[Rfam]
RNA sequence: UCCAUAUCCGGGCCGAAUCUCGCGGGCGGAUAGCCGCGCCGCGGGAACGGGGGACCCACUCCUCGGGGGCUAAUCUCGGACGAUAUCCGAGAGGGAUGCACGCUUCUCUGCCAUCCUGCCCGUCAGCUAACCCCGUAGGCUAACGCAGAGAAGGCCA
Numbered sequence: 001u002c003c004a005u006a007u008c009c010g011g012g013c014c015g016a017a018u019c020u021c022g023c024g025g026g027c028g029g030a031u032a033g034c035c036g037c038g039c040c041g042c043g044g045g046a047a048c049g050g051g052g053g054a055c056c057c058a059c060u061c062c063u064c065g066g067g068g069g070c071u072a073a074u075c076u077c078g079g080a081c082g083a084u085a086u087c088c089g090a091g092a093g094g095g096a097u098g099c100a101c102g103c104u105u106c107u108c109u110g111c112c113a114u115c116c117u118g119c120c121c122g123u124c125a126g127c128u129a130a131c132c133c134c135g136u137a138g139g140c141u142a143a144c145g146c147a148g149a150g151a152a153g154g155c156c157a
Base pairs, nucleotide, nucleotide: 011141012140013139014138018046019045020044021043022042023041024040025039047136048135049134050133051132052131057066067121068120069119075091076090077089078088094116095115096114097113